[Rfam]
RNA sequence: CUACGAUAAUGGCAAACCUAUUGAAAAAUAGGGACGCAAAGCCUACGGACCUAAUGUAUAGAAUACGAUGGUAGCCGGGUUACCGAA
Number, nucleotide and partner (000 for none) at each position: 001c000002u000003a000004c000005g000006a000007u000008a000009a000010u000011g000012g037013c036014a000015a000016a000017c032018c031019u030020a029021u028022u027023g000024a000025a000026a000027a022028a021029u020030a019031g018032g017033g000034a000035c000036g013037c012038a000039a000040a081041g080042c079043c078044u000045a000046c077047g076048g075049a072050c071051c070052u000053a000054a000055u000056g066057u065058a064059u063060a000061g000062a000063a059064u058065a057066c056067g000068a000069u000070g051071g050072u049073a000074g000075c048076c047077g046078g043079g042080u041081u040082a000083c000084c000085g000086a000087a000
RNA: c-di-GMP-I riboswitch aptamer